RNA sequence: UAGCUACAAAAUAACUUAUUCUGUAGCCACUUUGAGUUAUGAUAAGUACUAUGUUAAUUUAUGAAAUUAUAGCAACUCCUUGCUAAGUGGUUUACUAUAACGUUAUGGUAAAUAUCCACAUGUGUUAUAGUAACCCAACUAUCGUAAAUAUGUAUUGACAUUAUCGUAAAUGGAGGUGGGUACAUAAUAACUUAUUUUGUAGCUG
Numbered sequence: 001u002a003g004c005u006a007c008a009a010a011a012u013a014a015c016u017u018a019u020u021c022u023g024u025a026g027c028c029a030c031u032u033u034g035a036g037u038u039a040u041g042a043u044a045a046g047u048a049c050u051a052u053g054u055u056a057a058u059u060u061a062u063g064a065a066a067u068u069a070u071a072g073c074a075a076c077u078c079c080u081u082g083c084u085a086a087g088u089g090g091u092u093u094a095c096u097a098u099a100a101c102g103u104u105a106u107g108g109u110a111a112a113u114a115u116c117c118a119c120a121u122g123u124g125u126u127a128u129a130g131u132a133a134c135c136c137a138a139c140u141a142u143c144g145u146a147a148a149u150a151u152g153u154a155u156u157g158a159c160a161u162u163a164u165c166g167u168a169a170a171u172g173g174a175g176g177u178g179g180g181u182a183c184a185u186a187a188u189a190a191c192u193u194a195u196u197u198u199g200u201a202g203c204u205g
Stems, first nucleotide, its partner, number of pairs: 001205014016190005022184004027179007037169009047160001062157001065156003073152002080147004087142006093132011107117002